[Rfam]
RNA sequence: UGUGACGCUACGAGAUUAUAUUAUAUCAUCACUUAAAAAUUAAAAAAAUUACAUAAAUUUUCAGGUGAUGACAUGGUAUAAUCUUAGAGUGUCAC
Numbered sequence: 001u002g003u004g005a006c007g008c009u010a011c012g013a014g015a016u017u018a019u020a021u022u023a024u025a026u027c028a029u030c031a032c033u034u035a036a037a038a039a040u041u042a043a044a045a046a047a048a049u050u051a052c053a054u055a056a057a058u059u060u061u062c063a064g065g066u067g068a069u070g071a072c073a074u075g076g077u078a079u080a081a082u083c084u085u086a087g088a089g090u091g092u093c094a095c
Stems, first nucleotide, its partner, number of pairs: 003094007012085013026071009036061006

A member of the RNA family "MIR8675 microRNA precursor family" from Gossypium barbadense, 95 nucleotides long. It scores 95 bits against the family's covariance model. Taxonomically the source falls in Gossypium (Eukaryota, Mesangiospermae, Gunneridae, Malvaceae). Rfam 15.1 lists 111 matches to the family in 18 species.